[Rfam]
RNA sequence: UAACCUCUGGCGAUCAUCGCGAAUGUUG
Numbered sequence: 001u002a003a004c005c006u007c008u009g010g011c012g013a014u015c016a017u018c019g020c021g022a023a024u025g026u027u028g
Stems, first nucleotide, its partner, number of pairs: 001028004008023001010020004
Rfam assigns this 28-nucleotide RNA sequence to the family "L19-Flavobacteria ribosomal protein leader". On this family, see Eckert and Weinberg, BMC Microbiol 2020: "Discovery of 20 novel ribosomal leader candidates in bacteria and archaea". The family's RNA type in Rfam is cis-regulatory leader.